[Rfam]
RNA sequence: AUUGCGGACCGGGCCCCUCUGGUUGUUGCGCGAUGCAACAGCGAUGUCGGACCGCUUAA
Numbered sequence: 001a002u003u004g005c006g007g008a009c010c011g012g013g014c015c016c017c018u019c020u021g022g023u024u025g026u027u028g029c030g031c032g033a034u035g036c037a038a039c040a041g042c043g044a045u046g047u048c049g050g051a052c053c054g055c056u057u058a059a
Stems, first nucleotide, its partner, number of pairs: 006053002009050004022042008
Notes: The family of this 59-nucleotide sequence from Phytoamicus setariae is "terC RNA". Lineage of the source: Bacteria > Pseudomonadati > Alphaproteobacteria > Rhizobiaceae > Phytoamicus.